[Rfam]
Nucleotides: 065
Base pairs, nucleotide, nucleotide: 001065002064003063004062005061015051016050017049018047020045021044022043023042024041029039030038031037
Number, partner (000 for none) and nucleotide at each position: 001065u002064a003063c004062a005061c006000a007000u008000u009000u010000g011000u012000g013000a014000a015051g016050a017049c018047u019000a020045c021044a022043c023042a024041g025000a026000a027000a028000a029039c030038c031037u032000u033000u034000c035000g036000u037031g038030g039029g040000c041024u042023u043022g044021u045020g046000g047018a048000u049017g050016u051015c052000u053000g054000a055000u056000g057000u058000u059000u060000u061005g062004u063003g064002u065001a

This 65-nucleotide RNA sequence from Xenopus laevis belongs to the Rfam family "Selenocysteine insertion sequence 1".
A search with the family's covariance model found it, with a score of 39 bits.
The base pairs follow the family's consensus structure, which is taken from published work.
From the family's description: The incorporation of selenocysteine into a protein sequence is directed by an in-frame UGA codon (usually a stop codon) within the coding region of the mRNA. Selenoprotein mRNAs contain a conserved secondary structure in the 3' UTR that is required for the distinction of UGA stop from UGA selenocysteine.
On this family, see Walczak et al., RNA 1996: "A novel RNA structural motif in the selenocysteine insertion element of eukaryotic selenoprotein mRNAs".
It is annotated as a cis-regulatory element.
Gene Ontology term of the family: selenocysteine incorporation.